[Rfam]
The family of this 169-nucleotide part of an RNA from Heterosiphonia plumosa is "Eukaryotic small subunit ribosomal RNA". Gene Ontology terms of the family: structural constituent of ribosome and ribosome. The literature on the family includes a 2001 paper in Science by Yusupov et al., "Crystal structure of the ribosome at 5.5 A resolution". Pairs were carried over by alignment from the consensus structure, which is taken from published work. The source organism's lineage runs through Eukaryota, Rhodophyta, Rhodymeniophycidae, Dasyaceae and Heterosiphonia. Rfam's curators put it in the seed alignment.

RNA sequence: CCGCCCGUCGCUCCUACCGAUUGAGUGGUCCGGUGAGGCCUUGUGAGAUCUGAGAGUCACUGGUAUCUUUUUACCAGUCUUUCGGUUCAACCUUGGUCAAACCUUAUCACUUAGAGGAAGGAGAAGUCGUAACAAGGUUUCCGUAGGUGAACCUGCAGAGGAUACAAGC
Number, nucleotide and partner (000 for none) at each position: 001c136002c000003g133004c000005c000006c129007g128008u000009c126010g000011c123012u122013c121014c120015u119016a000017c117018c116019g000020a000021u113022u000023g112024a111025g110026u109027g108028g107029u106030c000031c000032g103033g102034u101035g000036a000037g098038g097039c096040c095041u000042u000043g092044u000045g000046a000047g088048a087049u000050c085051u084052g083053a082054g081055a080056g079057u000058c000059a000060c000061u076062g075063g074064u073065a000066u000067c000068u000069u000070u000071u000072u000073a064074c063075c062076a061077g000078u000079c056080u055081u054082u053083c052084g051085g050086u000087u048088c047089a000090a000091c000092c043093u000094u000095g040096g039097u038098c037099a000100a000101a034102c033103c032104u000105u000106a029107u028108c027109a026110c025111u024112u023113a021114g000115a000116g018117g017118a000119a015120g014121g013122a012123g011124a000125a000126g009127u000128c007129g006130u000131a000132a000133c003134a000135a000136g001137g000138u161139u160140u159141c158142c000143g156144u155145a154146g153147g152148u000149g000150a000151a000152c147153c146154u145155g144156c143157a000158g141159a140160g139161g138162a000163u000164a000165c000166a000167a000168g000169c000